[Rfam]
Nucleotides: 108
Base pairs, nucleotide, nucleotide: 007031008030009029011027012026037068038067039066040065041064042063043062044061045060075103076102077101078100079099080098082096083095
Number, partner (000 for none) and nucleotide at each position: 001000a002000u003000a004000c005000a006000u007031c008030g009029a010000g011027u012026u013000c014000g015000c016000c017000u018000c019000c020000u021000c022000c023000c024000a025000g026012a027011a028000c029009u030008c031007g032000a033000u034000a035000a036000g037068g038067a039066a040065u041064a042063c043062g044061g045060c046000a047000c048000u049000c050000c051000u052000c053000c054000u055000c056000c057000c058000a059000a060045g061044c062043c063042g064041u065040a066039u067038u068037c069000a070000a071000g072000a073000u074000c075103a076102g077101g078100c079099c080098g081000c082096g083095c084000a085000u086000c087000c088000u089000c090000c091000u092000c093000c094000c095083g096082c097000u098080c099079g100078g101077c102076c103075u104000u105000u106000u107000u108000c